[Rfam]
Rfam assigns this 113-nucleotide RNA from Streptococcus massiliensis to the family "FMN riboswitch aptamer (RFN element)". Pairs were carried over by alignment from the consensus structure, which is taken from published work.

RNA sequence: AAAUGUCUUCAGGGCAGGGUGUAAUUCCCGACCGGCGGUGAUAGUCCGCGAGCGCAAGCUGAUGUGGUGCAAUUCCACGACCGACAGUAUAGUCUGGAUGGGAGAAGACGAAG
Numbered sequence: 001a002a003a004u005g006u007c008u009u010c011a012g013g014g015c016a017g018g019g020u021g022u023a024a025u026u027c028c029c030g031a032c033c034g035g036c037g038g039u040g041a042u043a044g045u046c047c048g049c050g051a052g053c054g055c056a057a058g059c060u061g062a063u064g065u066g067g068u069g070c071a072a073u074u075c076c077a078c079g080a081c082c083g084a085c086a087g088u089a090u091a092g093u094c095u096g097g098a099u100g101g102g103a104g105a106a107g108a109c110g111a112a113g
Base pairs, nucleotide, nucleotide: 004110005109006108007107008106009105010104017029018028019027031093032092033083034082035049036048037047038046044081045080052059053058063079064078065077066076067075085096086095087094